[Rfam]
RNA sequence: CUCCCUUGGGGAGUAGCCGGCCUUCGUUUCUUCGAAGGCGCCUGCGUCAACACACUCGGCAUCUUUCAUGCCGUGGCGCAGGCAACCGUAUUUCGGUUGGCGAGACCAUCGGCAUGUCACCACGACGCAGGUCGGGCAGGGUGGCGUGCCUUUGCGUCCUCGCCCGGC
Numbered sequence: 001c002u003c004c005c006u007u008g009g010g011g012a013g014u015a016g017c018c019g020g021c022c023u024u025c026g027u028u029u030c031u032u033c034g035a036a037g038g039c040g041c042c043u044g045c046g047u048c049a050a051c052a053c054a055c056u057c058g059g060c061a062u063c064u065u066u067c068a069u070g071c072c073g074u075g076g077c078g079c080a081g082g083c084a085a086c087c088g089u090a091u092u093u094c095g096g097u098u099g100g101c102g103a104g105a106c107c108a109u110c111g112g113c114a115u116g117u118c119a120c121c122a123c124g125a126c127g128c129a130g131g132u133c134g135g136g137c138a139g140g141g142u143g144g145c146g147u148g149c150c151u152u153u154g155c156g157u158c159c160u161c162g163c164c165c166g167g168c
Stems, first nucleotide, its partner, number of pairs: 021038003040083010057073005
RNA: Manganese Mn2+ riboswitch aptamer (yybP-ykoY)
Organism: Variovorax sp. PAMC 28711